[Rfam]
RNA sequence: GGUACGCACGGCGACUGGCGUACGCGGAACGGACCGCGGGGAAGCCGUGCGGGGAACAACAGCACGAGGUGCCGCCCGCCUGGGCACCCCGG
Numbered sequence: 001g002g003u004a005c006g007c008a009c010g011g012c013g014a015c016u017g018g019c020g021u022a023c024g025c026g027g028a029a030c031g032g033a034c035c036g037c038g039g040g041g042a043a044g045c046c047g048u049g050c051g052g053g054g055a056a057c058a059a060c061a062g063c064a065c066g067a068g069g070u071g072c073c074g075c076c077c078g079c080c081u082g083g084g085c086a087c088c089c090c091g092g
Stems, first nucleotide, its partner, number of pairs: 003053001005051008015041002017080004024037004069087005

ZMP/ZTP riboswitch aptamer (pfl RNA motif): a 92-nucleotide RNA sequence from Streptomyces agglomeratus.
The base pairs follow the family's consensus structure, which is taken from published work.